[Rfam]
RNA sequence: AUCGGUUUGGAAUACAGACCUAUUUAUGUAAGACAUUGUAAUUAAGUAGUUCCUAGUUCAAGUGAUGCAUCCAGUCCCUUAUCCGACGAAUUUCCUUUUUAUAAGUGCCCAUAAGUAAUCACUGUAACAGACCUUACUCCGCCCUAUAGUGGCUAUCUAAAUAUAUAAAGGAAAUUAUCUAUGUCUAAUAAAAUGACUGGAUUGGUAAAAUGGUUUGACGCUGGCAAAGGUUUUGGUUUCAUUACCCCGACUGACGGCAGCAAAGACGUAUUCGUUCACUUCUCUGCCAUUCAAGGCCAGGGUAACGAUUACAAAAGCUUGGACGAAGGCCAGAAGGUCGAGUUCAGUGUUGAAAGCGGCCAGAAAGGCCCAUCAGCAGUGAACGUUAGUGUAAUCUAACGGUCUUCGGCGGAAGAUAAUUGACCAGGGUUUACCGCCUUCGCUUAAAUA
Numbered sequence: 001a002u003c004g005g006u007u008u009g010g011a012a013u014a015c016a017g018a019c020c021u022a023u024u025u026a027u028g029u030a031a032g033a034c035a036u037u038g039u040a041a042u043u044a045a046g047u048a049g050u051u052c053c054u055a056g057u058u059c060a061a062g063u064g065a066u067g068c069a070u071c072c073a074g075u076c077c078c079u080u081a082u083c084c085g086a087c088g089a090a091u092u093u094c095c096u097u098u099u100u101a102u103a104a105g106u107g108c109c110c111a112u113a114a115g116u117a118a119u120c121a122c123u124g125u126a127a128c129a130g131a132c133c134u135u136a137c138u139c140c141g142c143c144c145u146a147u148a149g150u151g152g153c154u155a156u157c158u159a160a161a162u163a164u165a166u167a168a169a170g171g172a173a174a175u176u177a178u179c180u181a182u183g184u185c186u187a188a189u190a191a192a193a194u195g196a197c198u199g200g201a202u203u204g205g206u207a208a209a210a211u212g213g214u215u216u217g218a219c220g221c222u223g224g225c226a227a228a229g230g231u232u233u234u235g236g237u238u239u240c241a242u243u244a245c246c247c248c249g250a251c252u253g254a255c256g257g258c259a260g261c262a263a264a265g266a267c268g269u270a271u272u273c274g275u276u277c278a279c280u281u282c283u284c285u286g287c288c289a290u291u292c293a294a295g296g297c298c299a300g301g302g303u304a305a306c307g308a309u310u311a312c313a314a315a316a317g318c319u320u321g322g323a324c325g326a327a328g329g330c331c332a333g334a335a336g337g338u339c340g341a342g343u344u345c346a347g348u349g350u351u352g353a354a355a356g357c358g359g360c361c362a363g364a365a366a367g368g369c370c371c372a373u374c375a376g377c378a379g380u381g382a383a384c385g386u387u388a389g390u391g392u393a394a395u396c397u398a399a400c401g402g403u404c405u406u407c408g409g410c411g412g413a414a415g416a417u418a419a420u421u422g423a424c425c426a427g428g429g430u431u432u433a434c435c436g437c438c439u440u441c442g443c444u445u446a447a448a449u450a
Stems, first nucleotide, its partner, number of pairs: 004020006027249002032246001035243001046239001049238001051236002053230002057228002064225001066223002068220001070218002073215001076213002080183003085179002094171005100165001104123004141153003185200003189196001252352005265273002276340001278338004283334004287329002290323006298317001358371002374391002380388001395415001397413001400411002403408001420447004425442001427440003431436001
Shown here is a 450-nucleotide sequence from Brenneria goodwinii, a member of the family "cspA thermoregulator". The family has 15 seed sequences and 2,094 matches in Rfam 15.1. Rfam classes the family as an RNA thermoregulator. Gene Ontology terms of the family: regulation of translation and response to temperature stimulus. The organism belongs to Brenneria, within Bacteria. The literature on the family includes a 2010 paper in Mol Cell by Giuliodori et al., "The cspA mRNA is a thermosensor that modulates translation of the cold-shock protein CspA".